Plastid-psbM 3UTR RNA: a 76-nucleotide RNA from Maranthes glabra. On this family, see Richter et al., Plant Commun 2023: "Retrograde signaling in plants: A critical review focusing on the GUN pathway and beyond". The family has 237 seed sequences and 627 matches in Rfam 15.1. The family's RNA type in Rfam is cis-regulatory element. Rfam describes the family as follows. Plastid psbM is a non-coding RNA (ncRNA) recognised in plastids. It was found in the three prime untranslated region (3UTR) of psbM gene, its 3UTR location suggests a role in transcript maturation.

[Rfam]
RNA sequence: GAUCGGAUAGUAUGGUAGAAAGAAAAGUUUUCUUUCUACCAUACUAUCUAUUUUUGUUAUUCUAGUGUAUACAGUU
Numbered sequence: 001g002a003u004c005g006g007a008u009a010g011u012a013u014g015g016u017a018g019a020a021a022g023a024a025a026a027g028u029u030u031u032c033u034u035u036c037u038a039c040c041a042u043a044c045u046a047u048c049u050a051u052u053u054u055u056g057u058u059a060u061u062c063u064a065g066u067g068u069a070u071a072c073a074g075u076u
Stems, first nucleotide, its partner, number of pairs: 006048018